[Rfam]
RNA sequence: AGGAUUUCGCCAAGGUCUCCUCCUCCCACCUUGGUGAAUGCGACCGGCUUUCUCCUCCUCCUCCCGAUCGCCGGUCGACCAAAACGACACCCGCCGGUCCUCCUCCCCCGGCGGGUGUUGUUU
Numbered sequence: 001a002g003g004a005u006u007u008c009g010c011c012a013a014g015g016u017c018u019c020c021u022c023c024u025c026c027c028a029c030c031u032u033g034g035u036g037a038a039u040g041c042g043a044c045c046g047g048c049u050u051u052c053u054c055c056u057c058c059u060c061c062u063c064c065c066g067a068u069c070g071c072c073g074g075u076c077g078a079c080c081a082a083a084a085c086g087a088c089a090c091c092c093g094c095c096g097g098u099c100c101u102c103c104u105c106c107c108c109c110g111g112c113g114g115g116u117g118u119u120g121u122u123u
Base pairs, nucleotide, nucleotide: 007037008036009035010034011033012032013031014030015029042076043075044074045073046072047071048070051067087118088117089116090115091114092113093112094111095110096109097108

The record is a 123-nucleotide RNA from Chelativorans petroleitrophicus, which matches "Alphaproteobacterial ar14" in Rfam. About the family: Smr14C2 was renamed NfeR1 (Nodule Formation Efficiency RNA) highly expressed in salt stress and during the symbiotic interaction on legume roots. For this family Rfam cites "A survey of sRNA families in alpha-proteobacteria" (del Val et al., RNA Biol, 2012). The source organism's lineage runs through Bacteria, Pseudomonadota, Hyphomicrobiales, Phyllobacteriaceae and Chelativorans. The pairing is the family consensus, mapped onto this sequence. The family's RNA type in Rfam is small RNA.